About this RNA:
Rfam assigns this 172-nucleotide sequence from Corynebacterium durum to the family "c-di-AMP riboswitch aptamer (ydaO/yuaA leader)". NCBI's taxonomy places the organism under Bacteria, Actinomycetes, Corynebacteriaceae, Corynebacterium, Corynebacterium durum. A search with the family's covariance model found it, with a score of 69 bits.

[Rfam]
RNA sequence: GAAAAAUAUAUGCCUAAUCAACCCAGUGUAGUGGCUGGGGAGAACCGGGGAACCAGAUUCCCAUCUGGGGUGAAUCCUUUCGGAGAGCACCAGAGACGGUGUGGACGUGAGGUAGGUGGCUUCCGCUUCCGAAUCCGACAGCUAACCCGGUAGGCGAACAACAGGAAGAUUU
Numbered sequence: 001g002a003a004a005a006a007u008a009u010a011u012g013c014c015u016a017a018u019c020a021a022c023c024c025a026g027u028g029u030a031g032u033g034g035c036u037g038g039g040g041a042g043a044a045c046c047g048g049g050g051a052a053c054c055a056g057a058u059u060c061c062c063a064u065c066u067g068g069g070g071u072g073a074a075u076c077c078u079u080u081c082g083g084a085g086a087g088c089a090c091c092a093g094a095g096a097c098g099g100u101g102u103g104g105a106c107g108u109g110a111g112g113u114a115g116g117u118g119g120c121u122u123c124c125g126c127u128u129c130c131g132a133a134u135c136c137g138a139c140a141g142c143u144a145a146c147c148c149g150g151u152a153g154g155c156g157a158a159c160a161a162c163a164g165g166a167a168g169a170u171u172u
Base pairs, nucleotide, nucleotide: 011156012155013154014153018043019042044151045150046149047148048147049146054067055066056065057064068136069135070134076112077111078110079109115130116129118127